[Rfam]
RNA sequence: CGGAUUUCGUCAGAGUAAUUAAAAGGUUUGUGAACCGCUUUACUCACAGAGGAAAGGAGUAGAUAACCCACCCGGCAAGGGUAAAUAGUCACUUUGAUACAAUCGGGUGGACGCUACUUGCAUGGUAAGCCGCAGACGUGCGCGGCUUAUUUCAUACCCGGUAUUGUCACGCAGUUAGUAGGUACGUCAAAAUUUUACUGUACGGAGUGAAUUUAUAAUGAAUAGCAAAG
Number, nucleotide and partner (000 for none) at each position: 001c000002g000003g000004a000005u042006u000007u000008c000009g000010u000011c000012a000013g000014a000015g000016u000017a000018a000019u030020u000021a000022a000023a000024a000025g000026g000027u000028u000029u000030g019031u000032g000033a000034a000035c000036c000037g000038c000039u000040u000041u000042a005043c000044u000045c000046a000047c000048a000049g000050a000051g000052g000053a000054a000055a000056g000057g000058a000059g000060u000061a000062g000063a000064u000065a000066a000067c000068c000069c000070a000071c081072c080073c079074g000075g000076c000077a000078a000079g073080g072081g071082u000083a000084a000085a000086u000087a000088g000089u210090c209091a208092c207093u206094u205095u204096g203097a000098u202099a167100c166101a165102a164103u163104c160105g159106g158107g157108u156109g000110g000111a000112c000113g121114c120115u000116a000117c000118u000119u000120g114121c113122a000123u000124g151125g150126u149127a148128a147129g146130c145131c144132g143133c000134a000135g000136a000137c000138g000139u000140g000141c000142g000143c132144g131145g130146c129147u128148u127149a126150u125151u124152u000153c000154a000155u000156a108157c107158c106159c105160g104161g000162u000163a103164u102165u101166g100167u099168c000169a000170c000171g201172c200173a199174g198175u197176u000177a196178g188179u000180a000181g000182g000183u000184a000185c000186g000187u000188c178189a000190a000191a000192a000193u000194u000195u000196u177197a175198c174199u173200g172201u171202a098203c096204g095205g094206a093207g092208u091209g090210a089211a000212u000213u000214u000215a000216u000217a000218a000219u000220g000221a000222a000223u000224a000225g000226c000227a000228a000229a000230g000
A member of the RNA family "RT-2 RNA" from bacterium D16-59, 230 nucleotides long.
Rfam classes the family as a small RNA.
The match comes from Rfam's covariance-model search (119 bits).